Notes: The record is a 254-nucleotide RNA from Pseudomonas jinjuensis, which matches "Pseudomonas sRNA P24" in Rfam. It is annotated as a non-coding RNA gene.
[Rfam]
RNA sequence: UUGCGGAGUGACUAUAUUAUUGAGCAAUCUUAGCAAUCCUUUGCCGGUUCGUCUGCCGUACUAUUUCUUCCAGAUUCACGGCCCGGACAUCGCGUCCAGCACGAUCCGCCCAAUCAGGCGCAUCGUGGCCGCCGACCCCACAGGGUCGAGCCGGCCCCCGGGCUACGCACCGCCCAGAAGGUGGAGCGAGGUGAGCCGGCGCCAACAGCGACGAGCCAGGACGAGUUUCCCGAAGGGAGGUCAAUGACCUCCCU
Numbered sequence: 001u002u003g004c005g006g007a008g009u010g011a012c013u014a015u016a017u018u019a020u021u022g023a024g025c026a027a028u029c030u031u032a033g034c035a036a037u038c039c040u041u042u043g044c045c046g047g048u049u050c051g052u053c054u055g056c057c058g059u060a061c062u063a064u065u066u067c068u069u070c071c072a073g074a075u076u077c078a079c080g081g082c083c084c085g086g087a088c089a090u091c092g093c094g095u096c097c098a099g100c101a102c103g104a105u106c107c108g109c110c111c112a113a114u115c116a117g118g119c120g121c122a123u124c125g126u127g128g129c130c131g132c133c134g135a136c137c138c139c140a141c142a143g144g145g146u147c148g149a150g151c152c153g154g155c156c157c158c159c160g161g162g163c164u165a166c167g168c169a170c171c172g173c174c175c176a177g178a179a180g181g182u183g184g185a186g187c188g189a190g191g192u193g194a195g196c197c198g199g200c201g202c203c204a205a206c207a208g209c210g211a212c213g214a215g216c217c218a219g220g221a222c223g224a225g226u227u228u229c230c231c232g233a234a235g236g237g238a239g240g241u242c243a244a245u246g247a248c249c250u251c252c253c254u
Stems, first nucleotide, its partner, number of pairs: 002011001043057001045055002076194004081163004085097004101126005108119003127156005134147005166188003170184005195216002197213002200210003234254004239249004
The match comes from Rfam's covariance-model search (229 bits). This small RNA (sRNA) was computationally identified in the genome of the opportunistic pathogen Pseudomonas aeruginosa and its expression verified by Northern blot analysis. P24 is conserved across several Pseudomonas species and in Azotobacter vinelandii. It appears to be consistently located between a hypothetical protein gene and a transcriptional regulator gene (AsnC family) in the genomes of all these species.